[Rfam]
RNA sequence: UGAUGUGUGAGGAGCGAACCAAAGAUACCGCCGAGACGAAACACGGACAGUCGUCGGCGGUAUCUUUGUUUUU
Numbered sequence: 001u002g003a004u005g006u007g008u009g010a011g012g013a014g015c016g017a018a019c020c021a022a023a024g025a026u027a028c029c030g031c032c033g034a035g036a037c038g039a040a041a042c043a044c045g046g047a048c049a050g051u052c053g054u055c056g057g058c059g060g061u062a063u064c065u066u067u068g069u070u071u072u073u
Stems, first nucleotide, its partner, number of pairs: 020068005027061002032056003035052003

Background:
Rfam assigns this 73-nucleotide sequence from Romeriopsis navalis to the family "Cyano-1 RNA". Pairs were carried over by alignment from the consensus structure, which is taken from published work. A search with the family's covariance model found it, with a score of 46 bits. The family has 265 seed sequences and 283 matches in Rfam 15.1. The organism belongs to Romeriopsis navalis, within Bacteria.